[Rfam]
RNA sequence: UGGCGCCCAACGUGGGGCUCCAGCACGGGGGAUCCAGUGAAGGACGCCGUUCGAGUGGCCGGCAGAAAGGAAAGCAAAGAAAAAUAAAAGAAAAGAAAAGAGGGAAUGACGUGGGAACCUGCUGCGUCUGCACCCCUCGGGUAAGUGAACGGCGAUCAUGGGGCAAGAAAUGAGUAAGCAUGAAUUAUUUGUGGAACAGUUAGGUCAUGCUUUAAAGGCACGAGGAGUAAAGGUGAAAGUAAAACAUUUAUGUAAAUAUUUUGAUUAUAUCAAAGAUCUCUGCCCUU
Numbered sequence: 001u002g003g004c005g006c007c008c009a010a011c012g013u014g015g016g017g018c019u020c021c022a023g024c025a026c027g028g029g030g031g032a033u034c035c036a037g038u039g040a041a042g043g044a045c046g047c048c049g050u051u052c053g054a055g056u057g058g059c060c061g062g063c064a065g066a067a068a069g070g071a072a073a074g075c076a077a078a079g080a081a082a083a084a085u086a087a088a089a090g091a092a093a094a095g096a097a098a099a100g101a102g103g104g105a106a107u108g109a110c111g112u113g114g115g116a117a118c119c120u121g122c123u124g125c126g127u128c129u130g131c132a133c134c135c136c137u138c139g140g141g142u143a144a145g146u147g148a149a150c151g152g153c154g155a156u157c158a159u160g161g162g163g164c165a166a167g168a169a170a171u172g173a174g175u176a177a178g179c180a181u182g183a184a185u186u187a188u189u190u191g192u193g194g195a196a197c198a199g200u201u202a203g204g205u206c207a208u209g210c211u212u213u214a215a216a217g218g219c220a221c222g223a224g225g226a227g228u229a230a231a232g233g234u235g236a237a238a239g240u241a242a243a244a245c246a247u248u249u250a251u252g253u254a255a256a257u258a259u260u261u262u263g264a265u266u267a268u269a270u271c272a273a274a275g276a277u278c279u280c281u282g283c284c285c286u287u
Base pairs, nucleotide, nucleotide: 006031007030008029012026013025014024100138101137102136103134104133107132110126111125112124113123114122146165147164150162153160154159171214172213173212174210175209176208221263222262223261224260225259227257228256231249232248233247234246235245272287273286275284277282